[Rfam]
RNA sequence: AUAUGCAUGGCUCCACAUACGCCAUCCACGAAGAUCAUCACUUGAAUAGAUGGGCUUCGCGAAUGGCAUACAGGGAGCCAGGCAUAU
Numbered sequence: 001a002u003a004u005g006c007a008u009g010g011c012u013c014c015a016c017a018u019a020c021g022c023c024a025u026c027c028a029c030g031a032a033g034a035u036c037a038u039c040a041c042u043u044g045a046a047u048a049g050a051u052g053g054g055c056u057u058c059g060c061g062a063a064u065g066g067c068a069u070a071c072a073g074g075g076a077g078c079c080a081g082g083c084a085u086a087u
Stems, first nucleotide, its partner, number of pairs: 001087006008080007018070002021067004027061001029059001

Rfam assigns this 87-nucleotide RNA sequence from Mikania micrantha to the family "mir-160 microRNA precursor family". The source organism's lineage runs through Eukaryota, Mesangiospermae, eudicotyledons, Asteroideae and Mikania. The base pairs follow the family's consensus structure, which was predicted with PFOLD. Gene Ontology terms of the family: RISC complex and miRNA-mediated post-transcriptional gene silencing. The match comes from Rfam's covariance-model search (48 bits). The family has 7 seed sequences and 1,502 matches in Rfam 15.1.